About this RNA
The record is a 139-nucleotide sequence from Baia soyae, which matches "c-di-AMP riboswitch aptamer (ydaO/yuaA leader)" in Rfam. The base pairs follow the family's consensus structure. The organism belongs to Baia, within Bacteria. Rfam links the family to the GO terms regulation of gene expression and cyclic-di-AMP binding.

[Rfam]
RNA sequence: AGCAAUUAGUCGCUUAAUCCGUCUUAUAAAAGGAGCGGGGGAACCAAACUUGGGGUGAAUCCUUAGUAGUAUCUAAGGUAGGGUUACUCUCAUAACCCGAAUCCGUCAGCUAACCUCGUAAGUGCUAAUGGAGGAAUAG
Numbered sequence: 001a002g003c004a005a006u007u008a009g010u011c012g013c014u015u016a017a018u019c020c021g022u023c024u025u026a027u028a029a030a031a032g033g034a035g036c037g038g039g040g041g042a043a044c045c046a047a048a049c050u051u052g053g054g055g056u057g058a059a060u061c062c063u064u065a066g067u068a069g070u071a072u073c074u075a076a077g078g079u080a081g082g083g084u085u086a087c088u089c090u091c092a093u094a095a096c097c098c099g100a101a102u103c104c105g106u107c108a109g110c111u112a113a114c115c116u117c118g119u120a121a122g123u124g125c126u127a128a129u130g131g132a133g134g135a136a137u138a139g
Stems, first nucleotide, its partner, number of pairs: 011124004018034003035119006045052002053104003061078004081098004